Small nucleolar RNA R160: an 87-nucleotide RNA sequence from Medicago truncatula. Taxonomically the source falls in Medicago (Eukaryota, Embryophyta, Euphyllophyta, Fabales). Rfam describes the family as follows. snoR160 is a C/D box small nucleolar RNA, which acts as a methylation guide for 25S ribosomal RNA in plants. snoR160 has been alternatively named snoZ270 in rice. It is annotated as a C/D-box small nucleolar RNA.
[Rfam]
RNA sequence: AGCGAAAUGAUGAAGCAAAUUUUUGUCUGAAACUGAUGUAGAUCUCUUGUUUCAUACAUGCAAUGCCUUCAAAGUUCUCUGAUUGCU
Number, nucleotide and partner (000 for none) at each position: 001a087002g086003c085004g084005a083006a000007a000008u000009g000010a000011u000012g000013a000014a000015g000016c000017a000018a000019a000020u000021u000022u000023u000024u000025g000026u000027c000028u000029g000030a000031a000032a000033c000034u000035g000036a000037u000038g000039u000040a000041g000042a000043u000044c000045u000046c000047u000048u000049g000050u000051u000052u000053c000054a000055u000056a000057c000058a000059u000060g000061c000062a000063a000064u000065g000066c000067c000068u000069u000070c000071a000072a000073a000074g000075u000076u000077c000078u000079c000080u000081g000082a000083u005084u004085g003086c002087u001
Source information
On this family, see Chen et al., Nucleic Acids Res 2003: "The high diversity of snoRNAs in plants: identification and comparative study of 120 snoRNA genes from Oryza sativa".